[Rfam]
RNA: Ribosomal protein L10 leader
RNA sequence: UAUAAAUUAGAAUAUAUACCGUAGACAGUGGGUGCCAAUUGGCGUAACGGGAUACCAACCUGCCGAGGUUUCAGAUAAGAAAUUUUGACCUCUCUACGUCUACGGAGAGGUCUUUCAUAUUUUAUGA
Numbered sequence: 001u002a003u004a005a006a007u008u009a010g011a012a013u014a015u016a017u018a019c020c021g022u023a024g025a026c027a028g029u030g031g032g033u034g035c036c037a038a039u040u041g042g043c044g045u046a047a048c049g050g051g052a053u054a055c056c057a058a059c060c061u062g063c064c065g066a067g068g069u070u071u072c073a074g075a076u077a078a079g080a081a082a083u084u085u086u087g088a089c090c091u092c093u094c095u096a097c098g099u100c101u102a103c104g105g106a107g108a109g110g111u112c113u114u115u116c117a118u119a120u121u122u123u124a125u126g127a
Stems, first nucleotide, its partner, number of pairs: 028063006034043003087112009